[Rfam]
RNA: c-di-GMP-I-GGC riboswitch aptamer
RNA sequence: AGUGAUAUCGGCAAACCCGUCGAAAGGCGGGGACGCAAAGCCUCCGGUCUACGGGAACGCGGCGCGCGAUGCGCGGCGCUCCUAUGACAGCGGGGUUGCCACGA
Dot-bracket structure: ..((......((...((((((....))))))..[))..((((.((((((....................................))).])))))))..))...